[Rfam]
RNA sequence: CGGGCCGGCCGGGCGACCGCGUUGGGGAGACCCACCGAGGAAGGUCCGGGCUCCGCAGAGCAGGGCGGUGGGUAACACCCACCCGGGGCAACCCGCGGGACAGUGCCACAGAGAACAGACCGCCUCCCGAGGGCAACCGAGGGAGGUAAGGGUGAAACGGUGGAGCAAGAGACCACCAGCACGCCGGGUGACCGGCGUGGCUCGGCAAACCCCGUCCGGAGCAAGAUCAGACAGCGCACGUCCGAGGGCUGCUCGCCCGAGUGCGCGGGUAGAUCGCUGGAGGCCGUCGGCAACGGCGGUCGUAGAUGGAUGGUCGCCCCUCGGCUCGCCGAGGACAGAACCCGGCCUACAGGCCGGCCCGUUCG
Number, nucleotide and partner (000 for none) at each position: 001c361002g360003g359004g358005c357006c356007g355008g354009c353010c352011g350012g318013g317014c316015g315016a314017c313018c312019g000020c037021g036022u000023u034024g033025g032026g031027g000028a000029g000030a000031c026032c025033c024034a023035c000036c021037g020038a000039g000040g000041a000042a348043g347044g346045u000046c345047c344048g343049g342050g341051c221052u220053c219054c218055g000056c000057a000058g254059a253060g252061c251062a000063g217064g216065g215066c214067g213068g082069u081070g080071g079072g078073u000074a000075a000076c000077a000078c072079c071080c070081a069082c068083c097084c095085g094086g093087g092088g000089c000090a000091a000092c087093c086094c085095g084096c000097g083098g212099g211100a000101c000102a000103g210104u209105g206106c205107c204108a000109c000110a000111g000112a000113g000114a000115a000116c000117a000118g000119a000120c151121c150122g147123c146124c145125u144126c143127c142128c141129g000130a000131g000132g000133g000134c000135a000136a000137c000138c000139g000140a000141g128142g127143g126144a125145g124146g123147u122148a000149a000150g121151g120152g000153u000154g000155a000156a000157a000158c000159g177160g176161u175162g174163g173164a000165g000166c000167a000168a000169g000170a000171g000172a000173c163174c162175a161176c160177c159178a000179g201180c199181a198182c197183g196184c195185c194186g193187g192188g000189u000190g000191a000192c187193c186194g185195g184196c183197g182198u181199g180200g000201c179202u000203c000204g107205g106206c105207a000208a000209a104210c103211c099212c098213c067214g066215u065216c064217c063218g054219g053220a052221g051222c000223a000224a000225g275226a274227u273228c272229a000230g000231a000232c000233a000234g266235c265236g264237c263238a262239c261240g000241u000242c000243c000244g000245a000246g258247g257248g256249c255250u000251g061252c060253u059254c058255g249256c248257c247258c246259g000260a000261g239262u238263g237264c236265g235266c234267g000268g000269g000270u000271a000272g228273a227274u226275c225276g000277c000278u000279g000280g000281a000282g301283g300284c299285c298286g297287u296288c295289g294290g000291c000292a000293a000294c289295g288296g287297c286298g285299g284300u283301c282302g000303u000304a000305g000306a000307u000308g000309g000310a000311u000312g018313g017314u016315c015316g014317c013318c012319c000320c000321u000322c000323g000324g000325c000326u000327c000328g000329c000330c000331g000332a000333g000334g000335a000336c000337a000338g000339a000340a000341c050342c049343c048344g047345g046346c044347c043348u042349a000350c011351a000352g010353g009354c008355c007356g006357g005358c004359c003360c002361g001362u000363u000364c000365g000
This 365-nucleotide sequence from Nocardioides dongxiaopingii belongs to the Rfam family "Bacterial RNase P class A".
It scores 282 bits against the family's covariance model.
Gene Ontology terms of the family: dimeric ribonuclease P complex, ribonuclease P activity and tRNA processing.
The organism belongs to Nocardioides, within Bacteria.
It is annotated as a ribozyme.